Notes: Shown here is a 70-nucleotide RNA sequence from Diceros bicornis, a member of the family "Small nucleolar RNA SNORD82".
RNA sequence: AGCACAAGUGAUGAACAACGAAGGGACUUAAUUCUGAAACCUGAUGUUGCACUGCGAUGUGCUGAUGUGC
Numbered sequence: 001a002g003c004a005c006a007a008g009u010g011a012u013g014a015a016c017a018a019c020g021a022a023g024g025g026a027c028u029u030a031a032u033u034c035u036g037a038a039a040c041c042u043g044a045u046g047u048u049g050c051a052c053u054g055c056g057a058u059g060u061g062c063u064g065a066u067g068u069g070c
Stems, first nucleotide, its partner, number of pairs: 002070005
The literature on the family includes a 2002 paper in Mol Cell Biol by Galardi et al., "Purified box C/D snoRNPs are able to reproduce site-specific 2'-O-methylation of target RNA in vitro". snoRNA U82 or Z25 is found in both humans and mice. The family's consensus secondary structure was predicted with PFOLD. A search with the family's covariance model found it, with a score of 88 bits.